Record summary:
Shown here is a 106-nucleotide RNA from Flavobacterium sp. Sd200, a member of the family "SAM riboswitch aptamer (S box leader)". A search with the family's covariance model found it, with a score of 81 bits. The organism belongs to Flavobacterium, within Bacteria. The family's consensus secondary structure is taken from published work. Rfam describes the family as follows. The SAM riboswitch is found upstream of a number of genes which code for proteins involved in methionine or cysteine biosynthesis in Gram-positive bacteria.

RNA sequence: AUGUUAUCACGAAAGGCAGAGGGAAUAGACCCAAUGAAGCCUUAGCAACCCUUUAUCUUAAAGAAGGUGCUAAAUUCUACUUCGCACAAGCGCAGAUAGAUAACUC
Numbered sequence: 001a002u003g004u005u006a007u008c009a010c011g012a013a014a015g016g017c018a019g020a021g022g023g024a025a026u027a028g029a030c031c032c033a034a035u036g037a038a039g040c041c042u043u044a045g046c047a048a049c050c051c052u053u054u055a056u057c058u059u060a061a062a063g064a065a066g067g068u069g070c071u072a073a074a075u076u077c078u079a080c081u082u083c084g085c086a087c088a089a090g091c092g093c094a095g096a097u098a099g100a101u102a103a104c105u106c
Stems, first nucleotide, its partner, number of pairs: 003104006013043005021032003026079004044071004049067002051063004075098001080095002083092003